[Rfam]
RNA sequence: GGGGUUUUUUUAAACCACUGAGGGGCCUAUAUAUGACGUGUCGGUUUCGACCGACUAUGGCGAUAAAUGGCCUUCGUAAUAAGCCUAUCGGACCCGGGGGCAGUACCCGGCGCCUCCACCAUAAUUCCAGACCGCGGGUCCCCGCAUCUGGCAUUCUGUGGGGGCGAACUAGGAUCGACGAGGGUGUAAAAGUUGUGCUUUCGCUCGGCAUGGUUCCGCCGUUAUCGGGCCGUUCAAUAGUUGCAAACGACAACUAUGCGGAGGCGGCUCUCGCUGCGUAAGCAGCGCGAUAGCCUCAUUUUCAAGUCCUAGCCUGUCGCAGGGCUAGGCGCGGUUUCGGAGGGCACCGGGCAACAGAAGCCCUCCACU
Numbered sequence: 001g002g003g004g005u006u007u008u009u010u011u012a013a014a015c016c017a018c019u020g021a022g023g024g025g026c027c028u029a030u031a032u033a034u035g036a037c038g039u040g041u042c043g044g045u046u047u048c049g050a051c052c053g054a055c056u057a058u059g060g061c062g063a064u065a066a067a068u069g070g071c072c073u074u075c076g077u078a079a080u081a082a083g084c085c086u087a088u089c090g091g092a093c094c095c096g097g098g099g100g101c102a103g104u105a106c107c108c109g110g111c112g113c114c115u116c117c118a119c120c121a122u123a124a125u126u127c128c129a130g131a132c133c134g135c136g137g138g139u140c141c142c143c144g145c146a147u148c149u150g151g152c153a154u155u156c157u158g159u160g161g162g163g164g165c166g167a168a169c170u171a172g173g174a175u176c177g178a179c180g181a182g183g184g185u186g187u188a189a190a191a192g193u194u195g196u197g198c199u200u201u202c203g204c205u206c207g208g209c210a211u212g213g214u215u216c217c218g219c220c221g222u223u224a225u226c227g228g229g230c231c232g233u234u235c236a237a238u239a240g241u242u243g244c245a246a247a248c249g250a251c252a253a254c255u256a257u258g259c260g261g262a263g264g265c266g267g268c269u270c271u272c273g274c275u276g277c278g279u280a281a282g283c284a285g286c287g288c289g290a291u292a293g294c295c296u297c298a299u300u301u302u303c304a305a306g307u308c309c310u311a312g313c314c315u316g317u318c319g320c321a322g323g324g325c326u327a328g329g330c331g332c333g334g335u336u337u338c339g340g341a342g343g344g345c346a347c348c349g350g351g352c353a354a355c356a357g358a359a360g361c362c363c364u365c366c367a368c369u
Stems, first nucleotide, its partner, number of pairs: 040055005059205005069198001072195001075192001084184003088181003094110005111166009206221004211232003215229003332349004339366006
Dot-bracket structure: .......................................(((((......)))))...(((((.....(..(..(........(((.(((...(((((.......)))))(((((((((......................................)))))))))............)))))).......)..)..)..)))))[[[[.(((.(((]]]].....))))))...................................................................................................[[[[...((((((.]]]]...........))))))...
A member of the RNA family "Alphaproteobacteria transfer-messenger RNA" from Methyloligella halotolerans, 369 nucleotides long. A reference for the family is Zwieb et al. (2003), "tmRDB (tmRNA database)", Nucleic Acids Res. Its Rfam clan is "tRNA clan". Its family is annotated with RNA catabolic process in the Gene Ontology. The family's RNA type in Rfam is non-coding RNA gene. The match comes from Rfam's covariance-model search (295 bits).